Description:
Shown here is a 72-nucleotide RNA sequence from Gambusia affinis, a member of the family "mir-551 microRNA precursor family". A reference for the family is Murchison et al. (2008), "Conservation of small RNA pathways in platypus", Genome Res. Rfam links the family to the GO terms RISC complex and miRNA-mediated post-transcriptional gene silencing. The source organism's lineage runs through Eukaryota, Chordata, Ovalentaria, Cyprinodontiformes and Gambusia. The family has 29 seed sequences and 1,097 matches in Rfam 15.1. The base pairs follow the family's consensus structure, which was predicted with RNAalifold.
[Rfam]
RNA sequence: UGCCCUUAGAAACUAAGUGUGGGUGUGGCCUGAAAAACAAACAUGGCGACCCAUCCUUAGCUUCUGAGGUCU
Numbered sequence: 001u002g003c004c005c006u007u008a009g010a011a012a013c014u015a016a017g018u019g020u021g022g023g024u025g026u027g028g029c030c031u032g033a034a035a036a037a038c039a040a041a042c043a044u045g046g047c048g049a050c051c052c053a054u055c056c057u058u059a060g061c062u063u064c065u066g067a068g069g070u071c072u
Stems, first nucleotide, its partner, number of pairs: 002071001004069004009064003013060002016057002021052004028047003